[Rfam]
Rfam assigns this 80-nucleotide RNA from Lachnoclostridium sp. An131 to the family "ZMP/ZTP riboswitch aptamer (pfl RNA motif)".
Nucleotides: 080
Base pairs, nucleotide, nucleotide: 003052004051007048008047009046010045011044012043015040016039017068018067019066020065021064024037025036026035027034057075059073060072061071
Number, partner (000 for none) and nucleotide at each position: 001000a002000g003052u004051u005000a006000a007048u008047u009046a010045u011044a012043c013000g014000a015040c016039u017068g018067a019066c020065g021064g022000a023000a024037g025036u026035g027034g028000a029000a030000g031000a032000a033000a034027c035026c036025a037024c038000a039016g040015g041000g042000a043012g044011u045010a046009u047008a048007a049000g050000g051004g052003a053000u054000g055000a056000g057075g058000a059073g060072c061071c062000g063000a064021c065020c066019g067018u068017c069000u070000g071061g072060g073059c074000a075057u076000g077000a078000u079000a080000c

Pairs were carried over by alignment from the consensus structure, which is taken from published work.